[Rfam]
RNA sequence: GCUGGCAAUGAUGACAAACUUGCCCUCACUGAGAUCCACCAGGGAUUGUUGUUGAGAAACGUUCUCUGUGCUCAACUUCUCCUGAGCCUGC
Numbered sequence: 001g002c003u004g005g006c007a008a009u010g011a012u013g014a015c016a017a018a019c020u021u022g023c024c025c026u027c028a029c030u031g032a033g034a035u036c037c038a039c040c041a042g043g044g045a046u047u048g049u050u051g052u053u054g055a056g057a058a059a060c061g062u063u064c065u066c067u068g069u070g071c072u073c074a075a076c077u078u079c080u081c082c083u084g085a086g087c088c089u090g091c
Stems, first nucleotide, its partner, number of pairs: 001091002004088003